[Rfam]
A member of the RNA family "transfer-messenger RNA" from Bacillus thuringiensis, 355 nucleotides long. It is one of the family's seed sequences. Clan: tRNA clan. The family's consensus secondary structure is taken from published work.
RNA sequence: GGGGACGUUACGGAUUCGACAGGGAUAGUUCGAGCUUAGGUUGCGAGUCGAGGGGAUCGGCCUCGUUAAAACGUCAAAGCCUAUAAUUGGCAAACAAAACAAUCUUUCUUUAGCUGCUUAAUUGCACUAAAGGUUCCUCCCUCCAUCGUCCAUGUGGUAGGGUAAGGGACUCAAACUAAGUGGACUACGCCGGAGUUCGCCGUCUGAGGACAAAGGAAGAGAACAACCAGACUAGCAACUUGGAAGCCUGUCGAUAGGCCGAAGAGUUCGCGAAACGCUAAUAUAUCGACUACACUCGUAGAAGCUUAAGUGCCGAUAUUUUUGGACGUGGGUUCGACUCCCACCGUCUCCACCA
Numbered sequence: 001g002g003g004g005a006c007g008u009u010a011c012g013g014a015u016u017c018g019a020c021a022g023g024g025a026u027a028g029u030u031c032g033a034g035c036u037u038a039g040g041u042u043g044c045g046a047g048u049c050g051a052g053g054g055g056a057u058c059g060g061c062c063u064c065g066u067u068a069a070a071a072c073g074u075c076a077a078a079g080c081c082u083a084u085a086a087u088u089g090g091c092a093a094a095c096a097a098a099a100c101a102a103u104c105u106u107u108c109u110u111u112a113g114c115u116g117c118u119u120a121a122u123u124g125c126a127c128u129a130a131a132g133g134u135u136c137c138u139c140c141c142u143c144c145a146u147c148g149u150c151c152a153u154g155u156g157g158u159a160g161g162g163u164a165a166g167g168g169a170c171u172c173a174a175a176c177u178a179a180g181u182g183g184a185c186u187a188c189g190c191c192g193g194a195g196u197u198c199g200c201c202g203u204c205u206g207a208g209g210a211c212a213a214a215g216g217a218a219g220a221g222a223a224c225a226a227c228c229a230g231a232c233u234a235g236c237a238a239c240u241u242g243g244a245a246g247c248c249u250g251u252c253g254a255u256a257g258g259c260c261g262a263a264g265a266g267u268u269c270g271c272g273a274a275a276c277g278c279u280a281a282u283a284u285a286u287c288g289a290c291u292a293c294a295c296u297c298g299u300a301g302a303a304g305c306u307u308a309a310g311u312g313c314c315g316a317u318a319u320u321u322u323u324g325g326a327c328g329u330g331g332g333u334u335c336g337a338c339u340c341c342c343a344c345c346g347u348c349u350c351c352a353c354c355a
Base pairs, nucleotide, nucleotide: 001351002350003349004348005347006346007345020324021323022322023321024320025319026318027317029315032313034311035310036309037308038307039306040305041304042303044298045297046296047295048294049065050064051063052062053061055075056074057073109132110131111130113128115126116125117124133170134169135168136167137166138165139162140161141160142159143157144156145155146154148185149184150183151182152181153180190216191215195211196210197209198208202232203231204230205229206228235271236270237268238267239266240265241264246259247258248257250290251289252288253287256284328344329343330342331341332340
Source information: From the family's description: Bacterial tmRNA, also known as 10Sa RNA or SsrA, is named for its dual tRNA and mRNA-like properties. Its role is to liberate the mRNA from a stalled ribosome. On this family, see Williams, Nucleic Acids Res 2002: "The tmRNA Website: invasion by an intron". Rfam classes the family as a non-coding RNA gene.